[Rfam]
RNA sequence: GGGCCCGGCAGGCCGCUGACCUCCCCAAAGAACCGGGGGAAAGAACUACCCGCCCACCCACCCUCCCCGGCCACACGGCUCGCGUCACCCGUCCGAGUGACCGGCUUGCAGGCGUGGGACGCGGGCGGUUACGUUCGCCGCGACAACCGCAAACAGAUACGGCCCCCGGCCGGGACUGGCAUCCCGAACGAGGGCCUGACCGAUCGAGAAGGAACAGACUUCCCG
Numbered sequence: 001g002g003g004c005c006c007g008g009c010a011g012g013c014c015g016c017u018g019a020c021c022u023c024c025c026c027a028a029a030g031a032a033c034c035g036g037g038g039g040a041a042a043g044a045a046c047u048a049c050c051c052g053c054c055c056a057c058c059c060a061c062c063c064u065c066c067c068c069g070g071c072c073a074c075a076c077g078g079c080u081c082g083c084g085u086c087a088c089c090c091g092u093c094c095g096a097g098u099g100a101c102c103g104g105c106u107u108g109c110a111g112g113c114g115u116g117g118g119a120c121g122c123g124g125g126c127g128g129u130u131a132c133g134u135u136c137g138c139c140g141c142g143a144c145a146a147c148c149g150c151a152a153a154c155a156g157a158u159a160c161g162g163c164c165c166c167c168g169g170c171c172g173g174g175a176c177u178g179g180c181a182u183c184c185c186g187a188a189c190g191a192g193g194g195c196c197u198g199a200c201c202g203a204u205c206g207a208g209a210a211g212g213a214a215c216a217g218a219c220u221u222c223c224c225g
Stems, first nucleotide, its partner, number of pairs: 007205001008201001015071004085100004090095001111139004161196005167190002172185004208222004
RNA: Streptomyces sRNA 4677